[Rfam]
RNA sequence: UUCUUAUUGGAUGAUAACUGUCACGUGUCAUGUUUUGAUUGAAUGUCAACUCCAUGAAAGAUGAAAUGAAUUGUUGUUUUCAUUGACCAAUCAGACACAUGACAGUUAUCAUCCAAUAAGAACAUGACACGUGACAGUCAACAUCA
Numbered sequence: 001u002u003c004u005u006a007u008u009g010g011a012u013g014a015u016a017a018c019u020g021u022c023a024c025g026u027g028u029c030a031u032g033u034u035u036u037g038a039u040u041g042a043a044u045g046u047c048a049a050c051u052c053c054a055u056g057a058a059a060g061a062u063g064a065a066a067u068g069a070a071u072u073g074u075u076g077u078u079u080u081c082a083u084u085g086a087c088c089a090a091u092c093a094g095a096c097a098c099a100u101g102a103c104a105g106u107u108a109u110c111a112u113c114c115a116a117u118a119a120g121a122a123c124a125u126g127a128c129a130c131g132u133g134a135c136a137g138u139c140a141a142c143a144u145c146a
Base pairs, nucleotide, nucleotide: 020135021134022133023132025130026129029126030125031124033122034121035120036119038117039116040115